[Rfam]
RNA: U1A polyadenylation inhibition element (PIE)
RNA sequence: UUGAAAAGCAUUGCACCCAGAGUCUGAUGUAGACAAUGCACCUGGUGCUUCUCUCUACUAAUAAAUGUUUCAU
Numbered sequence: 001u002u003g004a005a006a007a008g009c010a011u012u013g014c015a016c017c018c019a020g021a022g023u024c025u026g027a028u029g030u031a032g033a034c035a036a037u038g039c040a041c042c043u044g045g046u047g048c049u050u051c052u053c054u055c056u057a058c059u060a061a062u063a064a065a066u067g068u069u070u071c072a073u
Base pairs, nucleotide, nucleotide: 006050007049008048009047017045018044019043020042022034023033024032025031026030
Dot-bracket structure: .....((((.......((((.(((((...))))).......)))).)))).......................